This 82-nucleotide RNA sequence from Acyrthosiphon pisum belongs to the Rfam family "mir-92_2 microRNA precursor family".

RNA sequence: AGGUUGUGUUGUUUGCAAUAUGUAUUGUACAUUACCGUGUGCGGUCCGUACACGAUCUCAUAUUGCACUUGACCCAGCCUGC
Numbered sequence: 001a002g003g004u005u006g007u008g009u010u011g012u013u014u015g016c017a018a019u020a021u022g023u024a025u026u027g028u029a030c031a032u033u034a035c036c037g038u039g040u041g042c043g044g045u046c047c048g049u050a051c052a053c054g055a056u057c058u059c060a061u062a063u064u065g066c067a068c069u070u071g072a073c074c075c076a077g078c079c080u081g082c
Stems, first nucleotide, its partner, number of pairs: 001080006008074001010072001014067009
Record summary
Pairs were carried over by alignment from the consensus structure, which was predicted with RNAalifold. It is one of the family's seed sequences.